[Rfam]
RNA sequence: GCCCUUUUCAAAGCUGCGAUUCCGAGCUACAAACAGAGAGACUGCGGAUUCCGCAGUCUCUGGGUCUCGUCCUCCUCUGGAGUUCGGACGUUUCAUCUGCUCGUGAGAAAUUCGGAGGACUCUUCAUCUUUCCCGCCUUCGCCUUGUCAGGAUCCCUGACUUGGCUGGCCUGCCCGUGAGGGCCUGGCUUGACUUCAAGCUUGCAACAGUGGCAUAAGAAACGCAGGGCCUGUGACCUCAUGUAUAUCCGCAAGGAGAAGAUGGGGUUAGCAGUGUCCCUAUGAGAGAGCCGUUGCGAAGAUUGUGUUUGAAUCACUUAAGUCCGAUUCGCAGCUUGGGAUGCCUCGUUCGCGAGCACCUAAUAUUCGAUUCCGAUUACUCUGUUAAGGGC
Numbered sequence: 001g002c003c004c005u006u007u008u009c010a011a012a013g014c015u016g017c018g019a020u021u022c023c024g025a026g027c028u029a030c031a032a033a034c035a036g037a038g039a040g041a042c043u044g045c046g047g048a049u050u051c052c053g054c055a056g057u058c059u060c061u062g063g064g065u066c067u068c069g070u071c072c073u074c075c076u077c078u079g080g081a082g083u084u085c086g087g088a089c090g091u092u093u094c095a096u097c098u099g100c101u102c103g104u105g106a107g108a109a110a111u112u113c114g115g116a117g118g119a120c121u122c123u124u125c126a127u128c129u130u131u132c133c134c135g136c137c138u139u140c141g142c143c144u145u146g147u148c149a150g151g152a153u154c155c156c157u158g159a160c161u162u163g164g165c166u167g168g169c170c171u172g173c174c175c176g177u178g179a180g181g182g183c184c185u186g187g188c189u190u191g192a193c194u195u196c197a198a199g200c201u202u203g204c205a206a207c208a209g210u211g212g213c214a215u216a217a218g219a220a221a222c223g224c225a226g227g228g229c230c231u232g233u234g235a236c237c238u239c240a241u242g243u244a245u246a247u248c249c250g251c252a253a254g255g256a257g258a259a260g261a262u263g264g265g266g267u268u269a270g271c272a273g274u275g276u277c278c279c280u281a282u283g284a285g286a287g288a289g290c291c292g293u294u295g296c297g298a299a300g301a302u303u304g305u306g307u308u309u310g311a312a313u314c315a316c317u318u319a320a321g322u323c324c325g326a327u328u329c330g331c332a333g334c335u336u337g338g339g340a341u342g343c344c345u346c347g348u349u350c351g352c353g354a355g356c357a358c359c360u361a362a363u364a365u366u367c368g369a370u371u372c373c374g375a376u377u378a379c380u381c382u383g384u385u386a387a388g389g390g391c
Stems, first nucleotide, its partner, number of pairs: 001391004009383002013334007023103004036094003113374005122300004172183004186201005207295007226280003335362005
The record is a 391-nucleotide sequence from Monosporascus sp. MG133, which matches "Nuclear RNase P" in Rfam. A search with the family's covariance model found it, with a score of 39 bits. The family's RNA type in Rfam is ribozyme. The organism belongs to Monosporascus, within Eukaryota.